[Rfam]
Notes
The record is a 162-nucleotide RNA from Pitta sordida, which matches "Small nucleolar RNA SNORA79" in Rfam. ACA65 (SNORA79) is a member of the H/ACA class of snoRNAs that guide the sites of modification of uridines to pseudouridines. This snoRNA was identified by computational screening and its expression in mouse experimentally verified by Northern blot and primer extension analysis. The family has 25 seed sequences and 944 matches in Rfam 15.1.
RNA sequence: CGACCCGCGUUCCCCCCGCCGCCGCCAGCCCAGGGCGAGCGGGGUUUUAGCGGCGUCGCAGAUCAACAGCGGCGGCUCCUUCUUCACCCGGGGGGGAUUUUAUAUAAAAAUAUUAAUAAAUAAGAAAAUAAUCCCCUCCGGAUUUUGGGGGGUCGCACAAAG
Number, nucleotide and partner (000 for none) at each position: 001c058002g057003a056004c055005c053006c052007g051008c050009g000010u000011u000012c000013c000014c044015c043016c042017c041018g040019c000020c037021g036022c035023c034024g000025c000026c000027a000028g000029c000030c000031c000032a000033g000034g023035g022036c021037g020038a000039g000040c018041g017042g016043g015044g014045u000046u000047u000048u000049a000050g008051c007052g006053g005054c000055g004056u003057c002058g001059c000060a000061g000062a000063u000064c000065a000066a000067c000068a000069g000070c000071g000072g000073c000074g154075g153076c152077u151078c150079c149080u000081u000082c000083u000084u000085c000086a000087c000088c141089c140090g139091g138092g137093g136094g135095g134096g133097a132098u131099u130100u000101u000102a000103u000104a000105u000106a000107a000108a000109a000110a000111u000112a000113u000114u000115a000116a000117u000118a000119a000120a000121u000122a000123a000124g000125a000126a000127a000128a000129u000130a099131a098132u097133c096134c095135c094136c093137u092138c091139c090140g089141g088142a000143u000144u000145u000146u000147g000148g000149g079150g078151g077152g076153u075154c074155g000156c000157a000158c000159a000160a000161a000162g000